[Rfam]
RNA sequence: CCCGGUCCUCGGUAGUGGCUCUCAGAACCGGUACGCCGGCUCUGCGGGCCUCGAUCGAAGACCGGC
Numbered sequence: 001c002c003c004g005g006u007c008c009u010c011g012g013u014a015g016u017g018g019c020u021c022u023c024a025g026a027a028c029c030g031g032u033a034c035g036c037c038g039g040c041u042c043u044g045c046g047g048g049c050c051u052c053g054a055u056c057g058a059a060g061a062c063c064g065g066c
Stems, first nucleotide, its partner, number of pairs: 002065006009058005017050005023044004028039004
This 66-nucleotide RNA from Nocardioides guangzhouensis belongs to the Rfam family "Actino-pnp RNA". A search with the family's covariance model found it, with a score of 63 bits. The organism belongs to Nocardioides, within Bacteria.